[Rfam]
Metazoan signal recognition particle RNA: a 289-nucleotide RNA sequence from Heterostelium album.
Clan: SRP clan.
Its family is annotated with SRP-dependent cotranslational protein targeting to membrane, signal sequence recognition and signal recognition particle, endoplasmic reticulum targeting in the Gene Ontology.
For this family Rfam cites "Prediction of signal recognition particle RNA genes" (Regalia et al., Nucleic Acids Res, 2002).
The signal recognition particle (SRP) is a universally conserved ribonucleoprotein. It is involved in the co-translational targeting of proteins to membranes. The eukaryotic SRP consists of a 300-nucleotide 7S RNA and six proteins: SRPs 72, 68, 54, 19, 14, and 9.
RNA sequence: GCUGGGUAUCUGCAAAGAUCACCUGUUAUCGAAAGAAGCCAUAAAAACAUGAAUGGGGAGGUUUCAGUAAAGAGAUUGGAUCAAUAGAUGGUAACUGAUUGCCUGACGCAAGUGGUUGACAAACAUGUGGCUGAUUUCGUAAGAGACUGGUUCCAGGUUUCUAAAUACCGGAUGUGGCUCAAGGCUGGCAACAGAACAGGCAAAAAUUCGGAGCCGACUGUAGUGCGCAGAUAACAAUCAAAUAUCUACCAAUCGAAGUGCAGGAACUAAACCUCAGACUCGUUUUUUU
Numbered sequence: 001g002c003u004g005g006g007u008a009u010c011u012g013c014a015a016a017g018a019u020c021a022c023c024u025g026u027u028a029u030c031g032a033a034a035g036a037a038g039c040c041a042u043a044a045a046a047a048c049a050u051g052a053a054u055g056g057g058g059a060g061g062u063u064u065c066a067g068u069a070a071a072g073a074g075a076u077u078g079g080a081u082c083a084a085u086a087g088a089u090g091g092u093a094a095c096u097g098a099u100u101g102c103c104u105g106a107c108g109c110a111a112g113u114g115g116u117u118g119a120c121a122a123a124c125a126u127g128u129g130g131c132u133g134a135u136u137u138c139g140u141a142a143g144a145g146a147c148u149g150g151u152u153c154c155a156g157g158u159u160u161c162u163a164a165a166u167a168c169c170g171g172a173u174g175u176g177g178c179u180c181a182a183g184g185c186u187g188g189c190a191a192c193a194g195a196a197c198a199g200g201c202a203a204a205a206a207u208u209c210g211g212a213g214c215c216g217a218c219u220g221u222a223g224u225g226c227g228c229a230g231a232u233a234a235c236a237a238u239c240a241a242a243u244a245u246c247u248a249c250c251a252a253u254c255g256a257a258g259u260g261c262a263g264g265a266a267c268u269a270a271a272c273c274u275c276a277g278a279c280u281c282g283u284u285u286u287u288u289u
Stems, first nucleotide, its partner, number of pairs: 001039003004024004008019004029036002043286004049280001054276005060268006067261002075253005085248006096240006103230002107227004112221007120213001121160004126155002129152005135146004168211006175203001177201003185194003